[Rfam]
RNA sequence: AGAGGUACCAAGUUUGAGGUCACAGCAGAAGCGCCCUGUGUGUGGCCCUGUCAGAUUCCAAUGGAUCUGCAAAUUCUGCU
Numbered sequence: 001a002g003a004g005g006u007a008c009c010a011a012g013u014u015u016g017a018g019g020u021c022a023c024a025g026c027a028g029a030a031g032c033g034c035c036c037u038g039u040g041u042g043u044g045g046c047c048c049u050g051u052c053a054g055a056u057u058c059c060a061a062u063g064g065a066u067c068u069g070c071a072a073a074u075u076c077u078g079c080u
Base pairs, nucleotide, nucleotide: 016048018047019046020045021044024080025079026078027077028076029075030074031043032042033041052069053068054067055066056065057064058063